Background:
This 274-nucleotide part of an RNA from Glycocaulis alkaliphilus belongs to the Rfam family "Bacterial large subunit ribosomal RNA". It scores 2750 bits against the family's covariance model. Pairs were carried over by alignment from the consensus structure, which is taken from published work.

RNA sequence: GAUAAAGGGAGUGAGAGACUCCCUCGCCGAAAGUCCAAGGGUUCCUGCGCAAUGCUAAUCAGCGCAGGGUAAGCCGGCCCCUAAGGCGAGGCCGAAAGGCGUAGUCGAUGGGAAUCAGGUUAAUAUUCCUGAGCCAGCGGAAAGUGACGGAUACUGGAAAUUGUCUACCCUUAUUGGAUUGGGUGGGCAGUGAAGGUGUUCCUGGAAAUAGCUUCCGCAUUGAGACCGUACCCCAAACCGACACAGGUGGACUGGUAGAGCAUACCAAGGCGCU
Numbered sequence: 001g002a003u004a005a006a007g008g009g010a011g012u013g014a015g016a017g018a019c020u021c022c023c024u025c026g027c028c029g030a031a032a033g034u035c036c037a038a039g040g041g042u043u044c045c046u047g048c049g050c051a052a053u054g055c056u057a058a059u060c061a062g063c064g065c066a067g068g069g070u071a072a073g074c075c076g077g078c079c080c081c082u083a084a085g086g087c088g089a090g091g092c093c094g095a096a097a098g099g100c101g102u103a104g105u106c107g108a109u110g111g112g113a114a115u116c117a118g119g120u121u122a123a124u125a126u127u128c129c130u131g132a133g134c135c136a137g138c139g140g141a142a143a144g145u146g147a148c149g150g151a152u153a154c155u156g157g158a159a160a161u162u163g164u165c166u167a168c169c170c171u172u173a174u175u176g177g178a179u180u181g182g183g184u185g186g187g188c189a190g191u192g193a194a195g196g197u198g199u200u201c202c203u204g205g206a207a208a209u210a211g212c213u214u215c216c217g218c219a220u221u222g223a224g225a226c227c228g229u230a231c232c233c234c235a236a237a238c239c240g241a242c243a244c245a246g247g248u249g250g251a252c253u254g255g256u257a258g259a260g261c262a263u264a265c266c267a268a269g270g271c272g273c274u
Stems, first nucleotide, its partner, number of pairs: 006024006025272004033252004039232002044068006053061002075228003080111002085106003089102001091100003115132005135224001136220001140216001142214004149201004160191011238247002254266004